A member of the RNA family "mir-3492 microRNA precursor family" from Schistosoma margrebowiei, 78 nucleotides long. Taxonomically the source falls in Schistosoma (Eukaryota, Eumetazoa, Lophotrochozoa, Strigeidida).

RNA sequence: AGCUUUUCGAAUCCAUGCUAAGAUCUCGUCAGACAACAACCCAUUAAAGCUUAUCACACUUCCAAGAUAAGUGAAGUU
Numbered sequence: 001a002g003c004u005u006u007u008c009g010a011a012u013c014c015a016u017g018c019u020a021a022g023a024u025c026u027c028g029u030c031a032g033a034c035a036a037c038a039a040c041c042c043a044u045u046a047a048a049g050c051u052u053a054u055c056a057c058a059c060u061u062c063c064a065a066g067a068u069a070a071g072u073g074a075a076g077u078u
Base pairs, nucleotide, nucleotide: 002077003076004075005074006073008071011068012067013066016064017063020061021060022059024058026056028054029053
Dot-bracket structure: .(((((.(..(((..((..(((.(.(.((.......................)).).)))).)).)))..).))))).
Background
Rfam links the family to the GO terms miRNA-mediated post-transcriptional gene silencing and RISC complex. The match comes from Rfam's covariance-model search (44 bits). Pairs were carried over by alignment from the consensus structure, which was predicted with RNAalifold.